[Rfam]
RNA sequence: UUCCCGUCACAACGGCUUCCUGGCGUGGCGGACAAACAAUCAAUGGAGCG
Numbered sequence: 001u002u003c004c005c006g007u008c009a010c011a012a013c014g015g016c017u018u019c020c021u022g023g024c025g026u027g028g029c030g031g032a033c034a035a036a037c038a039a040u041c042a043a044u045g046g047a048g049c050g
Stems, first nucleotide, its partner, number of pairs: 004031007013022002015049003019046002